[Rfam]
RNA sequence: GUUUCCAUCACGUCAAUUGCUAUCAGAGCAACGCAUGAUGUAUAAUAACUAAGCGUCGCUCUGAUACCAAAUUGAUGCAAUGGAAAC
Dot-bracket structure: ((((((((..(((((.(((.(((((((((.((((..................)))).))))))))).))).).))))..))))))))
The record is an 87-nucleotide RNA sequence from Arabidopsis thaliana, which matches "MIR845_1 microRNA precursor family" in Rfam. The family has 4 seed sequences and 7 matches in Rfam 15.1. The literature on the family includes a 2007 paper in PLoS One by Fahlgren et al., "High-throughput sequencing of Arabidopsis microRNAs: evidence for frequent birth and death of MIRNA genes". Pairs were carried over by alignment from the consensus structure, which was predicted with RNAalifold. Gene Ontology terms of the family: RISC complex and miRNA-mediated post-transcriptional gene silencing. It is one of the family's seed sequences.